[Rfam]
RNA: CopA-like RNA
RNA sequence: AUAGAGCAAUCGUUCUAUGCGGUUCUCUAGGGCCCCGGUAAUCUUGUCCUGUCGCCAAACUAGAAAGAUUAUCGGGGUUUUUUCUU
Numbered sequence: 001a002u003a004g005a006g007c008a009a010u011c012g013u014u015c016u017a018u019g020c021g022g023u024u025c026u027c028u029a030g031g032g033c034c035c036c037g038g039u040a041a042u043c044u045u046g047u048c049c050u051g052u053c054g055c056c057a058a059a060c061u062a063g064a065a066a067g068a069u070u071a072u073c074g075g076g077g078u079u080u081u082u083u084c085u086u
Base pairs, nucleotide, nucleotide: 001018002017003016004015005014029083030080031079032078033077034076035075036074037073038072039071040070041069042068043067044066045065